[Rfam]
RNA: sraL Hfq binding RNA
Organism: Klebsiella michiganensis
RNA sequence: GUCGGCGCAAACCGGAACCUCCAUCAAAGACUGCGCAAUACUGAGGUGAGCCGACGUCGGGGGAAACCCUCCUGCGUACCAGCGGGAUAGUGCGAAAGACCAAGACCGGAAAACAACUAAAGCGCCCUGUUGUGGCGCUUUAGUUUU
Numbered sequence: 001g002u003c004g005g006c007g008c009a010a011a012c013c014g015g016a017a018c019c020u021c022c023a024u025c026a027a028a029g030a031c032u033g034c035g036c037a038a039u040a041c042u043g044a045g046g047u048g049a050g051c052c053g054a055c056g057u058c059g060g061g062g063g064a065a066a067c068c069c070u071c072c073u074g075c076g077u078a079c080c081a082g083c084g085g086g087a088u089a090g091u092g093c094g095a096a097a098g099a100c101c102a103a104g105a106c107c108g109g110a111a112a113a114c115a116a117c118u119a120a121a122g123c124g125c126c127c128u129g130u131u132g133u134g135g136c137g138c139u140u141u142a143g144u145u146u147u
Stems, first nucleotide, its partner, number of pairs: 002054005008048001014022002034045001036043002056100003060069003070087006115145012